[Rfam]
The family of this 233-nucleotide sequence from Novosphingobium silvae is "permuted transfer-messenger RNA". By type it is a non-coding RNA gene. It scores 134 bits against the family's covariance model. Pairs were carried over by alignment from the consensus structure, which is taken from published work. Lineage of the source: Bacteria > Pseudomonadati > Pseudomonadota > Sphingomonadaceae > Novosphingobium.
RNA sequence: GAUGAUAAAUUGCAGCGUGCAAUAGAUGCAGCGGACCCGGGGGCGGUACCCGGCGGCUCCACCAUCACCCGCCUUCCUUGGAAGGCUACCCUGUUGUCGCAGGGGUGUUGACGGGGCCGAACUAGGAUCGACGUGUGUUGAAAAGCGUUGUUUUCAUCCGGGCUGAGUAACCCGUUCAAGGCUCAAAACUCAUAAGUGCCAACGACAACGACGCACUUGCUCUCGCAGCGUAA
Numbered sequence: 001g002a003u004g005a006u007a008a009a010u011u012g013c014a015g016c017g018u019g020c021a022a023u024a025g026a027u028g029c030a031g032c033g034g035a036c037c038c039g040g041g042g043g044c045g046g047u048a049c050c051c052g053g054c055g056g057c058u059c060c061a062c063c064a065u066c067a068c069c070c071g072c073c074u075u076c077c078u079u080g081g082a083a084g085g086c087u088a089c090c091c092u093g094u095u096g097u098c099g100c101a102g103g104g105g106u107g108u109u110g111a112c113g114g115g116g117c118c119g120a121a122c123u124a125g126g127a128u129c130g131a132c133g134u135g136u137g138u139u140g141a142a143a144a145g146c147g148u149u150g151u152u153u154u155c156a157u158c159c160g161g162g163c164u165g166a167g168u169a170a171c172c173c174g175u176u177c178a179a180g181g182c183u184c185a186a187a188a189c190u191c192a193u194a195a196g197u198g199c200c201a202a203c204g205a206c207a208a209c210g211a212c213g214c215a216c217u218u219g220c221u222c223u224c225g226c227a228g229c230g231u232a233a
Stems, first nucleotide, its partner, number of pairs: 001158005015148004027137003031134003037053005054119007159174004